Nucleotides: 187
Stems, first nucleotide, its partner, number of pairs: 015049004025041004158187013
Number, partner (000 for none) and nucleotide at each position: 001000a002000g003000u004000c005000a006000a007000c008000a009000g010000a011000a012000g013000g014000a015049g016048g017047c018046a019000g020000a021000c022000c023000a024000u025041g026040g027039g028038a029000c030000u031000c032000a033000c034000g035000a036000a037000c038028u039027c040026u041025c042000u043000u044000a045000a046018u047017g048016c049015c050000u051000u052000g053000g054000u055000a056000g057000u058000c059000g060000g061000u062000a063000u064000g065000g066000c067000g068000u069000u070000u071000g072000u073000g074000u075000u076000c077000g078000u079000c080000g081000g082000a083000g084000c085000a086000a087000u088000g089000c090000u091000u092000u093000u094000u095000a096000u097000c098000u099000g100000a101000c102000g103000a104000g105000g106000a107000c108000u109000u110000u111000a112000a113000g114000g115000c116000u117000c118000g119000a120000u121000c122000a123000a124000g125000c126000a127000u128000c129000c130000a131000a132000a133000a134000c135000a136000g137000u138000u139000g140000a141000u142000g143000a144000c145000u146000u147000a148000a149000a150000a151000a152000a153000a154000u155000u156000u157000a158187a159186a160185a161184g162183c163182g164181c165180a166179g167178a168177u169176u170175c171000g172000g173000g174000a175170g176169g177168a178167u179166c180165u181164g182163c183162g184161c185160u186159u187158u
The family of this 187-nucleotide RNA sequence from Agrobacterium sp. AGB01 is "Rhizobiales sRNA Atu_C9".
The match comes from Rfam's covariance-model search (125 bits).